RNA sequence: UCUCAUUUAAACGACCCGAUCCCUACCUCUAUCGCGUCCUUACAGCUCUCUAGCUGCGCCAGUGCGGAUAAACUUCGAUAAAACAGU
Numbered sequence: 001u002c003u004c005a006u007u008u009a010a011a012c013g014a015c016c017c018g019a020u021c022c023c024u025a026c027c028u029c030u031a032u033c034g035c036g037u038c039c040u041u042a043c044a045g046c047u048c049u050c051u052a053g054c055u056g057c058g059c060c061a062g063u064g065c066g067g068a069u070a071a072a073c074u075u076c077g078a079u080a081a082a083a084c085a086g087u
Base pairs, nucleotide, nucleotide: 035066036065039062040061041058043056044055045054046053047052

Record summary
Rfam assigns this 87-nucleotide sequence from Alkalibacterium sp. AK22 to the family "BsrC". Pairs were carried over by alignment from the consensus structure, which was predicted with CMfinder. On this family, see Saito et al., Gene 2008: "Novel small RNA-encoding genes in the intergenic regions of Bacillus subtilis". By type it is a small RNA. Rfam 15.1 lists 572 matches to the family in 553 species.